RNA sequence: AUUUAAAGUAGAGGUGCGUUUUUUAUUAGUAAAUGGCUAGAUGUAUUCAGGUACAAGUGAAAGCUGUUGAAAGGAAAAAAUGCCGAAGAAAAGGAUAUACCUGUAGAAUUCUUUUCUGGGUACAUAGUGAAUAACUAUGUAACUGUCAUCUUAUAAAAGAUGGUGUGCUACUAAAGAU
Numbered sequence: 001a002u003u004u005a006a007a008g009u010a011g012a013g014g015u016g017c018g019u020u021u022u023u024u025a026u027u028a029g030u031a032a033a034u035g036g037c038u039a040g041a042u043g044u045a046u047u048c049a050g051g052u053a054c055a056a057g058u059g060a061a062a063g064c065u066g067u068u069g070a071a072a073g074g075a076a077a078a079a080a081u082g083c084c085g086a087a088g089a090a091a092a093g094g095a096u097a098u099a100c101c102u103g104u105a106g107a108a109u110u111c112u113u114u115u116c117u118g119g120g121u122a123c124a125u126a127g128u129g130a131a132u133a134a135c136u137a138u139g140u141a142a143c144u145g146u147c148a149u150c151u152u153a154u155a156a157a158a159g160a161u162g163g164u165g166u167g168c169u170a171c172u173a174a175a176g177a178u
Base pairs, nucleotide, nucleotide: 007172008171009170010169011168016083017082018081019080020079021078022077023076024075032068033067034066035065036064037063038062087117088116089115090114091113092112093111094110095109096108098106118144119143121141122140123139124138125137126136127135128134146163147162148161149160150159151158152157
RNA: Lysine riboswitch aptamer
Organism: Natranaerovirga pectinivora